[Rfam]
RNA sequence: GCCCCUGGCGUGGGGUGUCGAGCCGCCGCACAGGCGCCGGUGAACACGCCCCCUCCAAGGGGCGUACA
Numbered sequence: 001g002c003c004c005c006u007g008g009c010g011u012g013g014g015g016u017g018u019c020g021a022g023c024c025g026c027c028g029c030a031c032a033g034g035c036g037c038c039g040g041u042g043a044a045c046a047c048g049c050c051c052c053c054u055c056c057a058a059g060g061g062g063c064g065u066a067c068a
Base pairs, nucleotide, nucleotide: 001063002062003061004060005059006058012052013051014050015049016048017047018046025035026034027033
This 68-nucleotide RNA from Pyrobaculum calidifontis belongs to the Rfam family "Pyrobaculum sRNA 201". The sequence is in the family's curated seed alignment. A reference for the family is Bernick et al. (2012), "Discovery of Pyrobaculum small RNA families with atypical pseudouridine guide RNA features", RNA. It is annotated as an H/ACA-box small nucleolar RNA. The organism belongs to Pyrobaculum calidifontis, within Archaea. Has weak conservation of the canonical pseudouridylation guide sRNA features among the Pyrobaculum species.